[Rfam]
RNA sequence: AUGGCUGGACGUUCAGUUGGGAAAUCACUUCAAGGAACUCUGUCGUUCGGUGGAUCGGGUCGAAAGACUCUAAGUCA
Dot-bracket structure: ......................................((((((....))))))..(((((....))))).......
Numbered sequence: 001a002u003g004g005c006u007g008g009a010c011g012u013u014c015a016g017u018u019g020g021g022a023a024a025u026c027a028c029u030u031c032a033a034g035g036a037a038c039u040c041u042g043u044c045g046u047u048c049g050g051u052g053g054a055u056c057g058g059g060u061c062g063a064a065a066g067a068c069u070c071u072a073a074g075u076c077a
Stems, first nucleotide, its partner, number of pairs: 039054006057070005
This 77-nucleotide sequence from Legionella fallonii belongs to the Rfam family "RAGATH-32 RNA". Rfam classes the family as a cis-regulatory element. Pairs were carried over by alignment from the consensus structure, which is taken from published work. NCBI's taxonomy places the organism under Bacteria, Pseudomonadota, Legionellaceae, Legionella, Legionella fallonii.